[Rfam]
RNA sequence: AGAUGAGGUAGAGGUCGCAAACAUGAUGAUUAGGCGUGCGGAGGCGAAGAGUCGCUCAUGAUGCACGAGGAAAGGCUUGUUUGCCGAAGUGCCGGGGAGACUCUGAUCACCCGGAGCUGGGGCCGUCGCCGAACAGGCGCGGAACUGUCACGGGAGGUCCCUCCCGUGUUGAGCUAUCGUCAAG
Numbered sequence: 001a002g003a004u005g006a007g008g009u010a011g012a013g014g015u016c017g018c019a020a021a022c023a024u025g026a027u028g029a030u031u032a033g034g035c036g037u038g039c040g041g042a043g044g045c046g047a048a049g050a051g052u053c054g055c056u057c058a059u060g061a062u063g064c065a066c067g068a069g070g071a072a073a074g075g076c077u078u079g080u081u082u083g084c085c086g087a088a089g090u091g092c093c094g095g096g097g098a099g100a101c102u103c104u105g106a107u108c109a110c111c112c113g114g115a116g117c118u119g120g121g122g123c124c125g126u127c128g129c130c131g132a133a134c135a136g137g138c139g140c141g142g143a144a145c146u147g148u149c150a151c152g153g154g155a156g157g158u159c160c161c162u163c164c165c166g167u168g169u170u171g172a173g174c175u176a177u178c179g180u181c182a183a184g
Stems, first nucleotide, its partner, number of pairs: 007178005017084007025076001035067006088118003092114005099107001119146002123142003127139004149168006
Annotation: The family of this 184-nucleotide sequence from Paenibacillus sp. JCM 10914 is "Lysine riboswitch aptamer". The family's consensus secondary structure is taken from published work. The organism belongs to Paenibacillus, within Bacteria.